[Rfam]
RNA: c-di-AMP riboswitch aptamer (ydaO/yuaA leader)
Organism: Paenibacillus piri
RNA sequence: ACUUGUUUCACGCUUAGUUCCCGCACAGGGAAACGGGGGACCCAAUCGUCAAGGGGUGAAUCCCGGCCGUACAUCGAGUCUCGUAUGUACCCGGGUAGGGCGCUCUCAAGCCCGAAUCCGUCAGCUAACCUCGUAAGCGCAUUGAGAGAGAACCG
Numbered sequence: 001a002c003u004u005g006u007u008u009c010a011c012g013c014u015u016a017g018u019u020c021c022c023g024c025a026c027a028g029g030g031a032a033a034c035g036g037g038g039g040a041c042c043c044a045a046u047c048g049u050c051a052a053g054g055g056g057u058g059a060a061u062c063c064c065g066g067c068c069g070u071a072c073a074u075c076g077a078g079u080c081u082c083g084u085a086u087g088u089a090c091c092c093g094g095g096u097a098g099g100g101c102g103c104u105c106u107c108a109a110g111c112c113c114g115a116a117u118c119c120g121u122c123a124g125c126u127a128a129c130c131u132c133g134u135a136a137g138c139g140c141a142u143u144g145a146g147a148g149a150g151a152a153c154c155g
Stems, first nucleotide, its partner, number of pairs: 011139004018032005033134006043053001054119003062095004098113004